[Rfam]
Rfam assigns this 86-nucleotide RNA from Pelusios castaneus to the family "mir-15 microRNA precursor family". The organism belongs to Pelusios, within Eukaryota. Rfam's curators write: This family represents the related mir-15a and mir-15b sequences.

RNA sequence: UCAGGUCAGGCUGUAACAGCAAAUCAAAAUAGGUGUUAGUAAUAGGUGUAACACCUAUUUUGAUUUGCUGUUACAGCCUGACCUGA
Numbered sequence: 001u002c003a004g005g006u007c008a009g010g011c012u013g014u015a016a017c018a019g020c021a022a023a024u025c026a027a028a029a030u031a032g033g034u035g036u037u038a039g040u041a042a043u044a045g046g047u048g049u050a051a052c053a054c055c056u057a058u059u060u061u062g063a064u065u066u067g068c069u070g071u072u073a074c075a076g077c078c079u080g081a082c083c084u085g086a
Stems, first nucleotide, its partner, number of pairs: 001086006013074012026061011